[Rfam]
RNA sequence: GAUGGCGGUGAUGACUCCAUGAAAUUCAAGCUCAACAGACCGGAAUGCAGGCUUCUCAUCUCUUGAGAACUUUGCGUGUCGACCACCCCGCUGAACUGAGCCAUC
Numbered sequence: 001g002a003u004g005g006c007g008g009u010g011a012u013g014a015c016u017c018c019a020u021g022a023a024a025u026u027c028a029a030g031c032u033c034a035a036c037a038g039a040c041c042g043g044a045a046u047g048c049a050g051g052c053u054u055c056u057c058a059u060c061u062c063u064u065g066a067g068a069a070c071u072u073u074g075c076g077u078g079u080c081g082a083c084c085a086c087c088c089c090g091c092u093g094a095a096c097u098g099a100g101c102c103a104u105c
Stems, first nucleotide, its partner, number of pairs: 001105006
The record is a 105-nucleotide sequence from Hibiscus syriacus, which matches "Small nucleolar RNA Z107/R87" in Rfam. The base pairs follow the family's consensus structure, which was predicted with RNAfold. The organism belongs to Hibiscus, within Eukaryota. The family's RNA type in Rfam is C/D-box small nucleolar RNA. A reference for the family is Barneche et al. (2001), "Identification of 66 box C/D snoRNAs in Arabidopsis thaliana: extensive gene duplications generated multiple isoforms predicting new ribosomal RNA 2'-O-methylation sites", J Mol Biol. Its family is annotated with RNA processing and nucleolus in the Gene Ontology.